RNA: Streptomyces RNA 6925
RNA sequence: CGAGCAGAACCGUUCCUGGGUGCCCUCGCGAAAGGUCCGGAUCGGUUCGGUGAGUUGGUCUCCACGCCCUUGCAGGGGCGGGAGCGCCAUUACUGUCCGGCGUCUGGGAGUUGCAGCUCUCAGGCGCCGACG
Numbered sequence: 001c002g003a004g005c006a007g008a009a010c011c012g013u014u015c016c017u018g019g020g021u022g023c024c025c026u027c028g029c030g031a032a033a034g035g036u037c038c039g040g041a042u043c044g045g046u047u048c049g050g051u052g053a054g055u056u057g058g059u060c061u062c063c064a065c066g067c068c069c070u071u072g073c074a075g076g077g078g079c080g081g082g083a084g085c086g087c088c089a090u091u092a093c094u095g096u097c098c099g100g101c102g103u104c105u106g107g108g109a110g111u112u113g114c115a116g117c118u119c120u121c122a123g124g125c126g127c128c129g130a131c132g
Base pairs, nucleotide, nucleotide: 002093007048010045011044012043014041015040016039018037023034051089052088054087056086057085061082062081065080066079067078068077069076070075098129099128100127101126102125103124104123105122106121107120108119109118110117111116